A member of the RNA family "Purine riboswitch aptamer" from Halobacillus halophilus, 101 nucleotides long. The base pairs follow the family's consensus structure, which is taken from published work. The source organism's lineage runs through Bacteria, Bacillota, Bacilli, Caryophanales and Halobacillus halophilus.
RNA sequence: GAAAUUGCAUAAAAGGAACCUCAUAUAGGACGGGAAUACGGCCCGUUCGUCUCUACCUGGGAACCAUGAAUUCCCGGACUAUGAGGGGAGUCCAAGCAUUC
Numbered sequence: 001g002a003a004a005u006u007g008c009a010u011a012a013a014a015g016g017a018a019c020c021u022c023a024u025a026u027a028g029g030a031c032g033g034g035a036a037u038a039c040g041g042c043c044c045g046u047u048c049g050u051c052u053c054u055a056c057c058u059g060g061g062a063a064c065c066a067u068g069a070a071u072u073c074c075c076g077g078a079c080u081a082u083g084a085g086g087g088g089a090g091u092c093c094a095a096g097c098a099u100u101c
Base pairs, nucleotide, nucleotide: 019086020085021084022083023082024081025080028048029047030046031045032044033043034042057077058076059075060074061073062072063071
Dot-bracket structure: ..................(((((((..(((((((.......)))))))........(((((((.......)))))))..)))))))...............